[Rfam]
The record is a 587-nucleotide part of an RNA from uncultured bacterium 70, which matches "Bacterial large subunit ribosomal RNA" in Rfam.
RNA sequence: CCCGUGGCUAGACGAAAAGACCCCGUGCACCUUUACUACAUCCUAGUAGUGAAUGCUGACGUGUUAUGCGCAGGAUAGGUGGGAGACUUUGAACCCGGGAUUUCGGUCUCGGGGGAGUCAACGGUGAGAUACCACCCUUAACACUUCGGCGUUCUAACCUCGAUCUGUCAUCCAGAUUAGGGACACUGCUAGGUGGGUAGUUUGACUGGGGCGGUCGCCUCCUAAAGUGUAACGGAGGCGCGCGAAGGUUCGCUCAGGCUGUUUGGAAAUCAGCCUUAGAGUGCAAAAGCAAAAGCGAGCUUGACUGCGAGUCCUACAAGACGAGCAGGUGGGAAACCAGGCUUUAGUGAUCCGGUGGUUCCGCGUGGAAGGGCCAUCGCUCAACGGAUAAAAGGUACGCCGGGGAUAACAGGCUGAUCUGAGCCAAGAGUUCACAUCGACGCUCAGGUUUGGCACCUCGAUGUCGGCUCAUCACAUCCUGGAGCUGUAGCAGGUUCCAAGGGUCCGGCUGUUCGCCGGUUAAAGUGGUACGUGAGCUGGGUUUAGAACGUCGCGAGACAGUUCGGUCUCUAUCUGCCAUGGGCGCA
Numbered sequence: 001c002c003c004g005u006g007g008c009u010a011g012a013c014g015a016a017a018a019g020a021c022c023c024c025g026u027g028c029a030c031c032u033u034u035a036c037u038a039c040a041u042c043c044u045a046g047u048a049g050u051g052a053a054u055g056c057u058g059a060c061g062u063g064u065u066a067u068g069c070g071c072a073g074g075a076u077a078g079g080u081g082g083g084a085g086a087c088u089u090u091g092a093a094c095c096c097g098g099g100a101u102u103u104c105g106g107u108c109u110c111g112g113g114g115g116a117g118u119c120a121a122c123g124g125u126g127a128g129a130u131a132c133c134a135c136c137c138u139u140a141a142c143a144c145u146u147c148g149g150c151g152u153u154c155u156a157a158c159c160u161c162g163a164u165c166u167g168u169c170a171u172c173c174a175g176a177u178u179a180g181g182g183a184c185a186c187u188g189c190u191a192g193g194u195g196g197g198u199a200g201u202u203u204g205a206c207u208g209g210g211g212c213g214g215u216c217g218c219c220u221c222c223u224a225a226a227g228u229g230u231a232a233c234g235g236a237g238g239c240g241c242g243c244g245a246a247g248g249u250u251c252g253c254u255c256a257g258g259c260u261g262u263u264u265g266g267a268a269a270u271c272a273g274c275c276u277u278a279g280a281g282u283g284c285a286a287a288a289g290c291a292a293a294a295g296c297g298a299g300c301u302u303g304a305c306u307g308c309g310a311g312u313c314c315u316a317c318a319a320g321a322c323g324a325g326c327a328g329g330u331g332g333g334a335a336a337c338c339a340g341g342c343u344u345u346a347g348u349g350a351u352c353c354g355g356u357g358g359u360u361c362c363g364c365g366u367g368g369a370a371g372g373g374c375c376a377u378c379g380c381u382c383a384a385c386g387g388a389u390a391a392a393a394g395g396u397a398c399g400c401c402g403g404g405g406a407u408a409a410c411a412g413g414c415u416g417a418u419c420u421g422a423g424c425c426a427a428g429a430g431u432u433c434a435c436a437u438c439g440a441c442g443c444u445c446a447g448g449u450u451u452g453g454c455a456c457c458u459c460g461a462u463g464u465c466g467g468c469u470c471a472u473c474a475c476a477u478c479c480u481g482g483a484g485c486u487g488u489a490g491c492a493g494g495u496u497c498c499a500a501g502g503g504u505c506c507g508g509c510u511g512u513u514c515g516c517c518g519g520u521u522a523a524a525g526u527g528g529u530a531c532g533u534g535a536g537c538u539g540g541g542u543u544u545a546g547a548a549c550g551u552c553g554c555g556a557g558a559c560a561g562u563u564c565g566g567u568c569u570c571u572a573u574c575u576g577c578c579a580u581g582g583g584c585g586c587a
Base pairs, nucleotide, nucleotide: 001583002582003581004580005579006578007577008576010575011574012573014570015569022404023403024402025401027400028399029396030395031394032393033392035201036200037199038198042193043192044191045190046189047188048187051154052153053152054151055150056149057148058147059146061144062143063142064141065140066139068137078136079135080134081133082132085119086118087117094113095112096111097110098109099108100107101106158181159180160179162178163177164176165175166174167173204216205215206214207213217239218238219237220236221235222234240385242342243341248300249299250298251297252296253295254280255279257275258274259273260272261271281290282289305328306327307326308325311322312321313320330339331338332337353379354378355377356376357375358374359373361372362371413454414453415452417451418448419447420446421445422444423443424442428438429437465540466538467537468536469535470532471529472528473527474526475525478503479502481498482497483496484495485494486493505519506518507517508516509515546564547563548562549561550559551558552557
The family's consensus secondary structure is taken from published work.